Notes
This 131-nucleotide sequence from Drosophila kikkawai belongs to the Rfam family "mir-998 microRNA precursor family". The match comes from Rfam's covariance-model search (76 bits). Taxonomically the source falls in Sophophora (Eukaryota, Ephydroidea, Drosophilinae, Drosophila). The family has 7 seed sequences and 83 matches in Rfam 15.1. Gene Ontology terms of the family: RISC complex and miRNA-mediated post-transcriptional gene silencing.
[Rfam]
RNA sequence: CAAAUUCAUUUUGGAACUGAAUUCUCGUGGGUCUGCAACUGCAACAACACUGACCGCUUCCGGGGGCCAAUUGUUCAUAUUUGAGAUUGAAAUUUUGUAGCACCAUGAGAUUCAGCUCUGGCGUGAAUUUC
Numbered sequence: 001c002a003a004a005u006u007c008a009u010u011u012u013g014g015a016a017c018u019g020a021a022u023u024c025u026c027g028u029g030g031g032u033c034u035g036c037a038a039c040u041g042c043a044a045c046a047a048c049a050c051u052g053a054c055c056g057c058u059u060c061c062g063g064g065g066g067c068c069a070a071u072u073g074u075u076c077a078u079a080u081u082u083g084a085g086a087u088u089g090a091a092a093u094u095u096u097g098u099a100g101c102a103c104c105a106u107g108a109g110a111u112u113c114a115g116c117u118c119u120g121g122c123g124u125g126a127a128u129u130u131c
Base pairs, nucleotide, nucleotide: 003129004128005127006126007125009123011121012120013119014118015117017115018114019113023110024109025108026107027106028105029104030103033100034099035098036097037096
Dot-bracket structure: ..(((((.(.(((((.(((...((((((((..(((((..........................................................)))))..))))))))..))).))))).).)))))..